[Rfam]
RNA: mir-84 microRNA precursor family
Organism: Gongylonema pulchrum
RNA sequence: UAGGCCGAUGAGGUAGUUUAUAAAGCUGCGAGAGUGUCUCGAAUUCGCAGAUUUUAAGCUAUCUCGACUGCCUU
Numbered sequence: 001u002a003g004g005c006c007g008a009u010g011a012g013g014u015a016g017u018u019u020a021u022a023a024a025g026c027u028g029c030g031a032g033a034g035u036g037u038c039u040c041g042a043a044u045u046c047g048c049a050g051a052u053u054u055u056a057a058g059c060u061a062u063c064u065c066g067a068c069u070g071c072c073u074u
Stems, first nucleotide, its partner, number of pairs: 003072003010065008022054003027049003